Shown here is a 595-nucleotide part of an RNA from Leucoagaricus sp. SymC.cos, a member of the family "Eukaryotic large subunit ribosomal RNA". The source organism's lineage runs through Eukaryota, Fungi, Agaricomycotina, Agaricaceae and Leucoagaricus. The family's consensus secondary structure is taken from published work.
RNA sequence: CAGGGAAAGAAGACCCUGUUGAGCUUGACUCUAGUUUGAUAUUGUGAAAAAACAUAGAGGGUAUAGAAUAAGUGGGAGCUCUGGUGCCAUUGAAAUACCACUACCUUUAUCAUCUUUUUACUUAUUCAAUGAGACGGAGCUGGGAUUAACAGUCCCACCUUUUGGCUUUAAGGUCAUUUACAGGCUGAUCCAGGUUGAAGACAUUGUCAGGUGGGGAGUUUAGCUAGGGCGGCACAUCUGUUAAAAGAUAAUGCAGGUGUCCUAAGGGGGACUCAUCAAGAACAGAAAUCUUGAGUAGAACAAAAGGGUAAAAGUCCCCUUGAUUUUGAUUUUCAGUGUGAAUACAAACCAUGAAAGUGUGGCCUAUCGAUUCUUUAGUCCCUUGGAAUUUGAGGCUAGAGGUGCCAGAAAAGUUACUAUAGGGAUAACUGGCUUGUGGCAGCCAAGCAUUCAUAGCGACAUUACUUUUUGAUCCUUUGAUGUUGGCUCUUCCUAUCAUACUGAAGCAGAAUUCAGUAAGCAUUGGAUUGUUCACCCACUAAUAGGGAAUGUGAGCUGGGUUUAGACCAUCAUGAGACAGGUUAGUUUUACCCUA
Numbered sequence: 001c002a003g004g005g006a007a008a009g010a011a012g013a014c015c016c017u018g019u020u021g022a023g024c025u026u027g028a029c030u031c032u033a034g035u036u037u038g039a040u041a042u043u044g045u046g047a048a049a050a051a052a053c054a055u056a057g058a059g060g061g062u063a064u065a066g067a068a069u070a071a072g073u074g075g076g077a078g079c080u081c082u083g084g085u086g087c088c089a090u091u092g093a094a095a096u097a098c099c100a101c102u103a104c105c106u107u108u109a110u111c112a113u114c115u116u117u118u119u120a121c122u123u124a125u126u127c128a129a130u131g132a133g134a135c136g137g138a139g140c141u142g143g144g145a146u147u148a149a150c151a152g153u154c155c156c157a158c159c160u161u162u163u164g165g166c167u168u169u170a171a172g173g174u175c176a177u178u179u180a181c182a183g184g185c186u187g188a189u190c191c192a193g194g195u196u197g198a199a200g201a202c203a204u205u206g207u208c209a210g211g212u213g214g215g216g217a218g219u220u221u222a223g224c225u226a227g228g229g230c231g232g233c234a235c236a237u238c239u240g241u242u243a244a245a246a247g248a249u250a251a252u253g254c255a256g257g258u259g260u261c262c263u264a265a266g267g268g269g270g271a272c273u274c275a276u277c278a279a280g281a282a283c284a285g286a287a288a289u290c291u292u293g294a295g296u297a298g299a300a301c302a303a304a305a306g307g308g309u310a311a312a313a314g315u316c317c318c319c320u321u322g323a324u325u326u327u328g329a330u331u332u333u334c335a336g337u338g339u340g341a342a343u344a345c346a347a348a349c350c351a352u353g354a355a356a357g358u359g360u361g362g363c364c365u366a367u368c369g370a371u372u373c374u375u376u377a378g379u380c381c382c383u384u385g386g387a388a389u390u391u392g393a394g395g396c397u398a399g400a401g402g403u404g405c406c407a408g409a410a411a412a413g414u415u416a417c418u419a420u421a422g423g424g425a426u427a428a429c430u431g432g433c434u435u436g437u438g439g440c441a442g443c444c445a446a447g448c449a450u451u452c453a454u455a456g457c458g459a460c461a462u463u464a465c466u467u468u469u470u471g472a473u474c475c476u477u478u479g480a481u482g483u484u485g486g487c488u489c490u491u492c493c494u495a496u497c498a499u500a501c502u503g504a505a506g507c508a509g510a511a512u513u514c515a516g517u518a519a520g521c522a523u524u525g526g527a528u529u530g531u532u533c534a535c536c537c538a539c540u541a542a543u544a545g546g547g548a549a550u551g552u553g554a555g556c557u558g559g560g561u562u563u564a565g566a567c568c569a570u571c572a573u574g575a576g577a578c579a580g581g582u583u584a585g586u587u588u589u590a591c592c593c594u595a
Base pairs, nucleotide, nucleotide: 003594004593005592007589008588015423016422017421018420020419021418022415023414024413025412026411028219029218030217031216035211036210037209038208039207040206041205044121045120046119047118048117049116050115052113054110055109056108057107058106059105060104071102072101073100074099075098078085079084125199126198127197128196129195136191137190138189143155144154145153146152147151172186173185174184175183223233224232225231236258237257238256239255240254241253261362262361267319268318269317270316271315272314273299274298276294277293278292279291280290281289300309301308324348325347326346329343330342331341332340350359351358352357373401374400375399376398377397378396381395382394383393384392432473434471436470438466439465441463442462447457448456484559485557486556487555488554489551490548491547492546493545494544500517501516502515503514504513505512524538525537526536528534565583566582567581568580570577571576